[Rfam]
RNA sequence: CUUAGGAGCCGAUGAUGUUUUUAUUCAAAAUGUCUGAACCUGUCUGAAGCAUCCCAGUGAUGCGAACUGUGUUGUGCUGAGGCUUCUACUAUG
Numbered sequence: 001c002u003u004a005g006g007a008g009c010c011g012a013u014g015a016u017g018u019u020u021u022u023a024u025u026c027a028a029a030a031u032g033u034c035u036g037a038a039c040c041u042g043u044c045u046g047a048a049g050c051a052u053c054c055c056a057g058u059g060a061u062g063c064g065a066a067c068u069g070u071g072u073u074g075u076g077c078u079g080a081g082g083c084u085u086c087u088a089c090u091a092u093g
Base pairs, nucleotide, nucleotide: 004087005086006085007084008083009082010081